[Rfam]
RNA sequence: CGAGGCGACUCUGGAGAAAGCGCGGCGCCGUCGCCGGGCUUACCGAAGGUGAAAGGCGCACGGGCGCCGCAACUCUCAGGUAUCAGGACAGAGCGGGGAGG
Numbered sequence: 001c002g003a004g005g006c007g008a009c010u011c012u013g014g015a016g017a018a019a020g021c022g023c024g025g026c027g028c029c030g031u032c033g034c035c036g037g038g039c040u041u042a043c044c045g046a047a048g049g050u051g052a053a054a055g056g057c058g059c060a061c062g063g064g065c066g067c068c069g070c071a072a073c074u075c076u077c078a079g080g081u082a083u084c085a086g087g088a089c090a091g092a093g094c095g096g097g098g099a100g101g
Stems, first nucleotide, its partner, number of pairs: 006096001009093005019040003042081003045077002049075001051073001055068002
Dot-bracket structure: .....(..(((((.....(((................))).(((((..(.(...((..........))....).))).))).......)))))..).....
The record is a 101-nucleotide RNA sequence from Mycolicibacterium grossiae, which matches "Glycine riboswitch aptamer" in Rfam.
This family represents the bacterial glycine riboswitch.